[Rfam]
RNA sequence: GCAGGUGAAUACAACGUUGAGCGAUGAACGUUGUGCUCCAUGAUUGUAGUGUUUCUCAUAUUGAGUUUUAUACCGAUUAAUUGACGUUAUGCCGAUACUAAAAUCAUUAGUAUCGGCUAUU
Numbered sequence: 001g002c003a004g005g006u007g008a009a010u011a012c013a014a015c016g017u018u019g020a021g022c023g024a025u026g027a028a029c030g031u032u033g034u035g036c037u038c039c040a041u042g043a044u045u046g047u048a049g050u051g052u053u054u055c056u057c058a059u060a061u062u063g064a065g066u067u068u069u070a071u072a073c074c075g076a077u078u079a080a081u082u083g084a085c086g087u088u089a090u091g092c093c094g095a096u097a098c099u100a101a102a103a104u105c106a107u108u109a110g111u112a113u114c115g116g117c118u119a120u121u
Base pairs, nucleotide, nucleotide: 001047002046003045004044007038008037010035011034012033013032014031015030016029017028018027064082065081066080067079091117092116093115094114095113096112097111098110099109100108101107
Dot-bracket structure: ((((..((.(((((((((........))))))))).)).....))))................((((...........))))........(((((((((((.....)))))))))))....